Rfam assigns this 139-nucleotide sequence from Mariniflexile fucanivorans to the family "Flavo-1 RNA". Pairs were carried over by alignment from the consensus structure, which is taken from published work. NCBI's taxonomy places the organism under Bacteria, Pseudomonadati, Bacteroidota, Flavobacteriaceae, Mariniflexile.

RNA sequence: GUUGCGUUAGGGAUUGUAGCGAUAUCCUUUUUAAACUGAUAUUCUAUGAACUUUAUGUAAGUUUGAAAUUUACAGAUUGCCACGUCGCUCGCUCCUCGCAAUGACGUUUAAAAAGAUUUAGCGAAAAGCCCGACCCUUG
Dot-bracket structure: .........(((.((...((...(((...(((((((.....................................................................)))))))..)))...))...)).)))........